Background: Rfam assigns this 167-nucleotide RNA sequence from Thermosediminibacter oceani to the family "Group II catalytic intron D1-D4-3". The literature on the family includes a 2001 paper in Trends Genet by Bonen and Vogel, "The ins and outs of group II introns". Pairs were carried over by alignment from the consensus structure. Group II introns are found in rRNA, tRNA and mRNA of organelles in fungi, plants and protists, and also in mRNA in bacteria.
RNA sequence: CCCACCGUAGGUGGGUGCCGAAGGAAGCCGGCGGCAAAGCCACGGCCUGAUGAACAAGAACCCCAUAAGAGGCUGGACCGCUCGGAUGAGCUGGCAUAACACAGCGAAAUCCUAGGCUGCCGAGGGGCGGUAGAGUAUAUGGGGCAGGCGCGGGGCGGAGGAAGGGC
Numbered sequence: 001c002c003c004a005c006c007g008u009a010g011g012u013g014g015g016u017g018c019c020g021a022a023g024g025a026a027g028c029c030g031g032c033g034g035c036a037a038a039g040c041c042a043c044g045g046c047c048u049g050a051u052g053a054a055c056a057a058g059a060a061c062c063c064c065a066u067a068a069g070a071g072g073c074u075g076g077a078c079c080g081c082u083c084g085g086a087u088g089a090g091c092u093g094g095c096a097u098a099a100c101a102c103a104g105c106g107a108a109a110u111c112c113u114a115g116g117c118u119g120c121c122g123a124g125g126g127g128c129g130g131u132a133g134a135g136u137a138u139a140u141g142g143g144g145c146a147g148g149c150g151c152g153g154g155g156c157g158g159a160g161g162a163a164g165g166g167c
Stems, first nucleotide, its partner, number of pairs: 001015006030167001035161001039156003043152002045149005061144006072136003077131006084112004090105004